[Rfam]
RNA sequence: AAAUUUAAGACGAAAUCCCUUCGUAUAUCCUCGAUAAUACGGUUCGAGAGUCUCUACCGGGACACCGUAAAUGACCCGACUACGAAGGCAGAUGAUGCUCUG
Number, nucleotide and partner (000 for none) at each position: 001a000002a000003a000004u000005u000006u000007a000008a000009g000010a000011c000012g000013a000014a000015a000016u000017c000018c088019c087020u086021u085022c084023g083024u082025a081026u000027a000028u000029c000030c048031u047032c046033g045034a044035u000036a000037a000038u000039a000040c000041g000042g000043u000044u034045c033046g032047a031048g030049a000050g000051u000052c000053u000054c000055u000056a000057c000058c078059g077060g076061g075062a000063c073064a072065c000066c000067g000068u000069a000070a000071a000072u064073g063074a000075c061076c060077c059078g058079a000080c000081u025082a024083c023084g022085a021086a020087g019088g018089c000090a000091g000092a000093u000094g000095a000096u000097g000098c000099u000100c000101u000102g000
This 102-nucleotide RNA from Anoxybacillus sp. B7M1 belongs to the Rfam family "Purine riboswitch aptamer". The family's consensus secondary structure is taken from published work. Gene Ontology term of the family: purine nucleobase biosynthetic process. A reference for the family is Mandal et al. (2003), "Riboswitches Control Fundamental Biochemical Pathways in Bacillus subtilis and Other Bacteria", Cell.